[Rfam]
RNA sequence: GUUGCGAUCCGGGCCCCUCUGACGCGAGCAUGUCGCACGCGUGAUGUCGGAUCAGCUCC
Number, nucleotide and partner (000 for none) at each position: 001g000002u000003u000004g000005c000006g053007a052008u051009c050010c049011g048012g047013g000014c000015c000016c000017c000018u000019c000020u000021g000022a042023c041024g040025c039026g038027a000028g036029c035030a000031u000032g000033u000034c000035g029036c028037a000038c026039g025040c024041g023042u022043g000044a000045u000046g000047u012048c011049g010050g009051a008052u007053c006054a000055g000056c000057u000058c000059c000
Rfam assigns this 59-nucleotide RNA sequence from Aquabacter sp. L1I39 to the family "terC RNA".